Annotation:
Rfam assigns this 134-nucleotide RNA from Ictidomys tridecemlineatus to the family "Small nucleolar RNA SNORA9". It scores 100 bits against the family's covariance model. Rfam describes the family as follows. ACA9 is a member of the H/ACA class of snoRNA that guide the sites of modification of uridines to pseudouridines. Rfam classes the family as an H/ACA-box small nucleolar RNA. The base pairs follow the family's consensus structure, which was predicted with PFOLD.
RNA sequence: GUGCAAGCCUUCCAGCAUGCUGGAGUUUGGAUAAUUCAGAGCAUUCCUACAGUGCUUGCUAGAGUGUCUUGAAGUGGUUUGAGGCCUUGCCCUGUCCCAUCCUUAGAGCUUAGUCGUAGGCAUUUCAGACAGUU
Dot-bracket structure: ..((((((.........(((..(((((.....)))))...)))..........))))))..........(((((..........(...((.(((.........))).))...).........))))).......